[Rfam]
This 229-nucleotide part of an RNA from Pelagibacterales bacterium SAG-MED04 belongs to the Rfam family "Bacterial large subunit ribosomal RNA". Gene Ontology terms of the family: ribosome and structural constituent of ribosome. The source organism's lineage runs through Bacteria, Pseudomonadati, Pseudomonadota, Alphaproteobacteria and Candidatus Pelagibacterales.
RNA sequence: GACUUAAUUUAUAAAGCAAGCUUAAGCCAUCUAGGUGUAGGCGCAGCGAAAGCAAGUCUUAAUAGGGCGAUUAGUUUUAUGAAUUAGACCCGAAAACGAAUGAGCUUACCAUGAGCAGGUUGAAAGUUGGGUAACACCAACCGGAGGACCGAACCAGUUGACGUUGAAAAGUCUUUGGAUGACUUGUGGUAAGGGGUGAAAGGCCAACCAAAUUCGUAGAUAGCUGGUU
Dot-bracket structure: ....(((((((((((((..((((..(((.....)))..))))...((....))..((((.....)))).....)))))))))))))..((.(...((((((...((((((((((((.((((....(((((......))))).....))))...(((...(((........)))..)))..).))))))))))).(((.....)))......))))))......).))..
Numbered sequence: 001g002a003c004u005u006a007a008u009u010u011a012u013a014a015a016g017c018a019a020g021c022u023u024a025a026g027c028c029a030u031c032u033a034g035g036u037g038u039a040g041g042c043g044c045a046g047c048g049a050a051a052g053c054a055a056g057u058c059u060u061a062a063u064a065g066g067g068c069g070a071u072u073a074g075u076u077u078u079a080u081g082a083a084u085u086a087g088a089c090c091c092g093a094a095a096a097c098g099a100a101u102g103a104g105c106u107u108a109c110c111a112u113g114a115g116c117a118g119g120u121u122g123a124a125a126g127u128u129g130g131g132u133a134a135c136a137c138c139a140a141c142c143g144g145a146g147g148a149c150c151g152a153a154c155c156a157g158u159u160g161a162c163g164u165u166g167a168a169a170a171g172u173c174u175u176u177g178g179a180u181g182a183c184u185u186g187u188g189g190u191a192a193g194g195g196g197u198g199a200a201a202g203g204c205c206a207a208c209c210a211a212a213u214u215c216g217u218a219g220a221u222a223g224c225u226g227g228u229u
Stems, first nucleotide, its partner, number of pairs: 005086013020042004026036003046053002056068004089227002092224001096217006105193011116181001118150004126141005154178003160173003195205003